[Rfam]
RNA sequence: UUGGCAUGAUGAGGAAAUUAAUACAUUGUGCCUGAUCCGCUGGAUGAGAACUUCCUCCUACUCAUUCUGA
Numbered sequence: 001u002u003g004g005c006a007u008g009a010u011g012a013g014g015a016a017a018u019u020a021a022u023a024c025a026u027u028g029u030g031c032c033u034g035a036u037c038c039g040c041u042g043g044a045u046g047a048g049a050a051c052u053u054c055c056u057c058c059u060a061c062u063c064a065u066u067c068u069g070a
Stems, first nucleotide, its partner, number of pairs: 006065004029048001032043001
Background:
The family of this 70-nucleotide RNA from Dichanthelium oligosanthes is "Small nucleolar RNA Z105". Rfam classes the family as a C/D-box small nucleolar RNA. NCBI's taxonomy places the organism under Eukaryota, Tracheophyta, Petrosaviidae, Panicodae, Dichanthelium. Rfam links the family to the GO terms nucleolus and RNA processing.